The record is a 96-nucleotide sequence, which matches "DUF3800-V RNA" in Rfam. The family's RNA type in Rfam is small RNA. It is one of the family's seed sequences.
[Rfam]
RNA sequence: UUCUUGAGCGGUAAGUCCUUUCUGGGUGUCUGCGAUGUUCCCCUCCAUGGAGGGCAAAAGCCGCAGCAUUCCGAACCCAGAAGGCGCGCUCUUUUU
Numbered sequence: 001u002u003c004u005u006g007a008g009c010g011g012u013a014a015g016u017c018c019u020u021u022c023u024g025g026g027u028g029u030c031u032g033c034g035a036u037g038u039u040c041c042c043c044u045c046c047a048u049g050g051a052g053g054g055c056a057a058a059a060g061c062c063g064c065a066g067c068a069u070u071c072c073g074a075a076c077c078c079a080g081a082a083g084g085c086g087c088g089c090u091c092u093u094u095u096u
Stems, first nucleotide, its partner, number of pairs: 008089002022080005027074001029073001030066005036060001041054005